[Rfam]
RNA sequence: GAGAUCAUACUUCACAGGAUCAUUUCUGUAGUGUGCUUCUCGCAACCCCCCUUGCAAACUGCGGCACAGCGCAGCCGCGGUGAUGUGGGAUAGUGUCGCUUCCUGAGCGUGAAGUUCGGCGGUCGGUUUCUUCGGAAGCUGGCUCGUCGUUGAUGACCGCUCUUGUGGACUCACGUCUACGAGAAGGGAAGUGUCGCGUUCUGAGCGGU
Numbered sequence: 001g002a003g004a005u006c007a008u009a010c011u012u013c014a015c016a017g018g019a020u021c022a023u024u025u026c027u028g029u030a031g032u033g034u035g036c037u038u039c040u041c042g043c044a045a046c047c048c049c050c051c052u053u054g055c056a057a058a059c060u061g062c063g064g065c066a067c068a069g070c071g072c073a074g075c076c077g078c079g080g081u082g083a084u085g086u087g088g089g090a091u092a093g094u095g096u097c098g099c100u101u102c103c104u105g106a107g108c109g110u111g112a113a114g115u116u117c118g119g120c121g122g123u124c125g126g127u128u129u130c131u132u133c134g135g136a137a138g139c140u141g142g143c144u145c146g147u148c149g150u151u152g153a154u155g156a157c158c159g160c161u162c163u164u165g166u167g168g169a170c171u172c173a174c175g176u177c178u179a180c181g182a183g184a185a186g187g188g189a190a191g192u193g194u195c196g197c198g199u200u201c202u203g204a205g206c207g208g209u
Stems, first nucleotide, its partner, number of pairs: 001041004006035006015028005049064002052061001074209005093197003097193008107160003118148004124142001126139005163183002165180006